[Rfam]
RNA sequence: GGCCUAAGUCUUACAAAAUUGUAAGAUAUGGUAUAAAAACCUAACCAAUAAAGGUGGUCUUCUGAUCACAGCACUUAUUGGUUAGGUCUAUGCCCGAAAGGGUAUAGGAUAGUUUGAAAGAACUGUC
Numbered sequence: 001g002g003c004c005u006a007a008g009u010c011u012u013a014c015a016a017a018a019u020u021g022u023a024a025g026a027u028a029u030g031g032u033a034u035a036a037a038a039a040c041c042u043a044a045c046c047a048a049u050a051a052a053g054g055u056g057g058u059c060u061u062c063u064g065a066u067c068a069c070a071g072c073a074c075u076u077a078u079u080g081g082u083u084a085g086g087u088c089u090a091u092g093c094c095c096g097a098a099a100g101g102g103u104a105u106a107g108g109a110u111a112g113u114u115u116g117a118a119a120g121a122a123c124u125g126u127c
Stems, first nucleotide, its partner, number of pairs: 002032003009026007040086011054069006088107008108127008

Rfam assigns this 127-nucleotide RNA sequence to the family "LOOT RNA".